[Rfam]
RNA sequence: CUCGGGGGCUUUCUUGGACCCAGAGUCUGUCCCCAGACAUUGCACCUGGCGCUGUUAGGCUGGAAUUAAAGUGUUUU
Numbered sequence: 001c002u003c004g005g006g007g008g009c010u011u012u013c014u015u016g017g018a019c020c021c022a023g024a025g026u027c028u029g030u031c032c033c034c035a036g037a038c039a040u041u042g043c044a045c046c047u048g049g050c051g052c053u054g055u056u057a058g059g060c061u062g063g064a065a066u067u068a069a070a071g072u073g074u075u076u077u
Base pairs, nucleotide, nucleotide: 005055007053008052009051020049021048022047023046025038026037027036028035029034
RNA: U1A polyadenylation inhibition element (PIE)